RNA sequence: CCAUACCUUUUUUGGGGGUUGUGUUACUGUCAGUGAAGGCAUAGUGGGGACAAUACUGCUAACACCUAACACCAUACCUGCAUCAGUUAAAGCUCUGCUUUACCUUGGUGCAAUUUUUGGAAAA
Numbered sequence: 001c002c003a004u005a006c007c008u009u010u011u012u013u014g015g016g017g018g019u020u021g022u023g024u025u026a027c028u029g030u031c032a033g034u035g036a037a038g039g040c041a042u043a044g045u046g047g048g049g050a051c052a053a054u055a056c057u058g059c060u061a062a063c064a065c066c067u068a069a070c071a072c073c074a075u076a077c078c079u080g081c082a083u084c085a086g087u088u089a090a091a092g093c094u095c096u097g098c099u100u101u102a103c104c105u106u107g108g109u110g111c112a113a114u115u116u117u118u119g120g121a122a123a124a
Stems, first nucleotide, its partner, number of pairs: 005019005021059003026054001028052003031048001037045001080111006088102006
Dot-bracket structure: ....(((((.....))))).(((..(.((((.....(.......)..).))).)..)))....................((((((..((((((...))))))...)))))).............